[Rfam]
RNA: Bacillaceae-1 RNA
Organism: Bacillus sp. J14TS2
RNA sequence: CCAGAAGGAUCAAAGACUAAAUCCGCAAGAUCCUGUCGUAACACCUUUGUGACCUGCGUCCUGCAGG
Numbered sequence: 001c002c003a004g005a006a007g008g009a010u011c012a013a014a015g016a017c018u019a020a021a022u023c024c025g026c027a028a029g030a031u032c033c034u035g036u037c038g039u040a041a042c043a044c045c046u047u048u049g050u051g052a053c054c055u056g057c058g059u060c061c062u063g064c065a066g067g
Base pairs, nucleotide, nucleotide: 011049012048013047014046015045025039026038028036053067054066055065056064057063